[Rfam]
RNA sequence: AGCCACUGAUGAAACUUGAUUCUGCCAGAUGAAUUUCUGUGAUAUCACCAUUUCCGUUCCAUUCUUUCUGAGGUU
Numbered sequence: 001a002g003c004c005a006c007u008g009a010u011g012a013a014a015c016u017u018g019a020u021u022c023u024g025c026c027a028g029a030u031g032a033a034u035u036u037c038u039g040u041g042a043u044a045u046c047a048c049c050a051u052u053u054c055c056g057u058u059c060c061a062u063u064c065u066u067u068c069u070g071a072g073g074u075u
Base pairs, nucleotide, nucleotide: 001075002074003073004072
This 75-nucleotide RNA sequence from Coturnix japonica belongs to the Rfam family "Small nucleolar RNA SNORD47". Gene Ontology terms of the family: RNA processing and nucleolus. By type it is a C/D-box small nucleolar RNA. The family's consensus secondary structure was predicted with ILM. On this family, see Huttenhofer et al., EMBO J 2001: "RNomics: an experimental approach that identifies 201 candidates for novel, small, non-messenger RNAs in mouse".